Description: The record is a 310-nucleotide RNA sequence, which matches "permuted transfer-messenger RNA" in Rfam.
RNA sequence: UGGAUGACGGGCUACAUAGACACUGUACUGGACCGGGGUGCGAUUCCCCGCGCCUCCACCACCAAGUCCCCCGGCUGGAGCCCACAAGGCUCCACCGAUCCUGCCCAGCGAGGGAUCGGCAUCUGAACGGUUCGGGGGACUUUGUACUGGGGGCGAUCAGCAUCGACAGGCAGAAGAAGUGGAAGACGCGACACGGCAUGGCUGCCGGUUCCCAUCAGGGUUCGCUCGGCCAACAUUGAUAAAUGUCAAUGCUUCGAACGACAACGACGUCGUGGUUUCGACCAUGACCUCGGUCAAGCUGGCCGCUUAA
Number, nucleotide and partner (000 for none) at each position: 001u191002g000003g189004a000005u000006g000007a000008c000009g000010g000011g000012c000013u182014a000015c000016a000017u000018a000019g000020a000021c000022a000023c000024u172025g171026u170027a000028c169029u168030g167031g000032a000033c000034c050035g049036g048037g047038g046039u000040g000041c000042g000043a000044u000045u000046c038047c037048c036049c035050g034051c155052g154053c153054c152055u151056c150057c149058a000059c000060c000061a000062c000063c000064a000065a000066g000067u000068c000069c000070c000071c000072c000073g000074g000075c000076u000077g000078g000079a000080g000081c000082c000083c000084a000085c000086a000087a000088g000089g000090c000091u000092c000093c000094a000095c000096c000097g000098a000099u000100c000101c000102u000103g000104c000105c000106c000107a000108g000109c000110g000111a000112g000113g000114g000115a000116u000117c000118g000119g000120c000121a000122u000123c000124u000125g000126a000127a000128c000129g000130g000131u000132u000133c000134g000135g000136g000137g000138g000139a000140c000141u000142u000143u000144g000145u000146a000147c000148u000149g057150g056151g055152g054153g053154c052155g051156a000157u000158c000159a000160g000161c000162a000163u000164c000165g000166a000167c030168a029169g028170g026171c025172a024173g000174a000175a000176g000177a000178a000179g000180u000181g000182g013183a000184a000185g000186a000187c000188g000189c003190g000191a001192c000193a000194c207195g206196g205197c204198a000199u000200g000201g000202c000203u000204g197205c196206c195207g194208g000209u000210u000211c000212c000213c000214a000215u000216c000217a000218g000219g000220g000221u000222u000223c000224g000225c000226u000227c000228g000229g000230c000231c000232a000233a000234c000235a000236u000237u000238g000239a000240u000241a000242a000243a000244u000245g000246u000247c000248a000249a000250u000251g000252c000253u000254u000255c000256g000257a000258a000259c000260g000261a000262c000263a000264a000265c000266g000267a000268c000269g000270u000271c000272g000273u000274g000275g000276u000277u000278u000279c000280g000281a000282c000283c000284a000285u000286g000287a000288c000289c000290u000291c000292g000293g000294u000295c000296a000297a000298g000299c000300u000301g000302g000303c000304c000305g000306c000307u000308u000309a000310a000
It is annotated as a non-coding RNA gene.